RNA: cspA thermoregulator
RNA sequence: AUCGGUUUGAAACACAGACCUUAUGAACGCAGUUUUAGUAAAGCAGUCCUCAGUUCAAGCGCUAUCCGCAUAGAUACCUCUUCUUCUUGUGAGUCUUCUCCUAAGUGCUAAGUAAGAACUUUUCAAUAAGUAACUCUUUGAAGACGACCACCUUCGCUGCAUGAUUUAUUUGAAUCAUGGCGGCACACAAAACAAAUAAAGGAAGCAUCUAUGUCUAAUAAAAUGACUGGUUUAGUAAAAUGGUUUGACGCUGGUAAAGGUUUUGGUUUUAUCUCUCCUGAAGAUGGCAGCAAAGAUGUAUUCGUACAUUUCUCUGCAAUCCAGAGCAACGAUUUCAAAACUCUUGAUGAAGGCCAAAAAGUUGAGUUCUCUAUCGAGAACGGCGCUAAAGGUCCAUCAGCAGUAAACGUUGUUGCGCUGUAAUAGCCAACAGCCAUCGCAGUAACCUCUGAGUUACCGCGAACCAAAAACCCGCCUUGUGCGGGUUUUUGCGU
Numbered sequence: 001a002u003c004g005g006u007u008u009g010a011a012a013c014a015c016a017g018a019c020c021u022u023a024u025g026a027a028c029g030c031a032g033u034u035u036u037a038g039u040a041a042a043g044c045a046g047u048c049c050u051c052a053g054u055u056c057a058a059g060c061g062c063u064a065u066c067c068g069c070a071u072a073g074a075u076a077c078c079u080c081u082u083c084u085u086c087u088u089g090u091g092a093g094u095c096u097u098c099u100c101c102u103a104a105g106u107g108c109u110a111a112g113u114a115a116g117a118a119c120u121u122u123u124c125a126a127u128a129a130g131u132a133a134c135u136c137u138u139u140g141a142a143g144a145c146g147a148c149c150a151c152c153u154u155c156g157c158u159g160c161a162u163g164a165u166u167u168a169u170u171u172g173a174a175u176c177a178u179g180g181c182g183g184c185a186c187a188c189a190a191a192a193c194a195a196a197u198a199a200a201g202g203a204a205g206c207a208u209c210u211a212u213g214u215c216u217a218a219u220a221a222a223a224u225g226a227c228u229g230g231u232u233u234a235g236u237a238a239a240a241u242g243g244u245u246u247g248a249c250g251c252u253g254g255u256a257a258a259g260g261u262u263u264u265g266g267u268u269u270u271a272u273c274u275c276u277c278c279u280g281a282a283g284a285u286g287g288c289a290g291c292a293a294a295g296a297u298g299u300a301u302u303c304g305u306a307c308a309u310u311u312c313u314c315u316g317c318a319a320u321c322c323a324g325a326g327c328a329a330c331g332a333u334u335u336c337a338a339a340a341c342u343c344u345u346g347a348u349g350a351a352g353g354c355c356a357a358a359a360a361g362u363u364g365a366g367u368u369c370u371c372u373a374u375c376g377a378g379a380a381c382g383g384c385g386c387u388a389a390a391g392g393u394c395c396a397u398c399a400g401c402a403g404u405a406a407a408c409g410u411u412g413u414u415g416c417g418c419u420g421u422a423a424u425a426g427c428c429a430a431c432a433g434c435c436a437u438c439g440c441a442g443u444a445a446c447c448u449c450u451g452a453g454u455u456a457c458c459g460c461g462a463a464c465c466a467a468a469a470a471c472c473c474g475c476c477u478u479g480u481g482c483g484g485g486u487u488u489u490u491g492c493g494u
Stems, first nucleotide, its partner, number of pairs: 004020006029278001031276002042270002046268001048266002050260002054258002061255004069250001071248001073246002076244003082213001084211001096205001099203004104122002107119001215230003219226001283375005295303002308362004313358001315356002317353001320347002323344003382395002385393003398420003401415005465491011